nqrA-II ncRNA motif: a 176-nucleotide sequence from Otariodibacter oris. The literature on the family includes a 2024 paper in Nucleic Acids Res by Narunsky et al., "The discovery of novel noncoding RNAs in 50 bacterial genomes". It is annotated as a cis-regulatory element. Gene Ontology term of the family: regulation of gene expression.
RNA sequence: AUUUUUAUCUUUCGUUUUUAAGAUAAGAAUCCGAUUUGAGAACUUAAUGUAGUCAUUUAAAAAAAGUGGGGGAACCAACGUUUGUUUUUUUAUUUUGGCUAUGACUCAAUAGAUGGGAUUGCAGGUCAUCUGCAAUCAUAAUUUUAACCCAACAAAAAGUAGUGCAAACAAUAUGA
Numbered sequence: 001a002u003u004u005u006u007a008u009c010u011u012u013c014g015u016u017u018u019u020a021a022g023a024u025a026a027g028a029a030u031c032c033g034a035u036u037u038g039a040g041a042a043c044u045u046a047a048u049g050u051a052g053u054c055a056u057u058u059a060a061a062a063a064a065a066g067u068g069g070g071g072g073a074a075c076c077a078a079c080g081u082u083u084g085u086u087u088u089u090u091u092a093u094u095u096u097g098g099c100u101a102u103g104a105c106u107c108a109a110u111a112g113a114u115g116g117g118a119u120u121g122c123a124g125g126u127c128a129u130c131u132g133c134a135a136u137c138a139u140a141a142u143u144u145u146a147a148c149c150c151a152a153c154a155a156a157a158a159g160u161a162g163u164g165c166a167a168a169c170a171a172u173a174u175g176a
Stems, first nucleotide, its partner, number of pairs: 002029010036109005048103006055093002059089005064083005069076002115165001117137008140160001142158004